[Rfam]
RNA sequence: UCAUGUUCCUAAGUACUAGUGCCGCAGGAGUGACUUUCCGAUAUCUCCUGCUGCUUAAGUGCUUAUCAAUAGA
Numbered sequence: 001u002c003a004u005g006u007u008c009c010u011a012a013g014u015a016c017u018a019g020u021g022c023c024g025c026a027g028g029a030g031u032g033a034c035u036u037u038c039c040g041a042u043a044u045c046u047c048c049u050g051c052u053g054c055u056u057a058a059g060u061g062c063u064u065a066u067c068a069a070u071a072g073a
Stems, first nucleotide, its partner, number of pairs: 001073002004071004010065008019056001024051007

Shown here is a 73-nucleotide RNA from Heliconius melpomene, a member of the family "mir-252 microRNA precursor family". The sequence is in the family's curated seed alignment. The source organism's lineage runs through Eukaryota, Pterygota, Heteroneura, Heliconiinae and Heliconius. Pairs were carried over by alignment from the consensus structure, which was predicted with RNAalifold. Its family is annotated with RISC complex and miRNA-mediated post-transcriptional gene silencing in the Gene Ontology.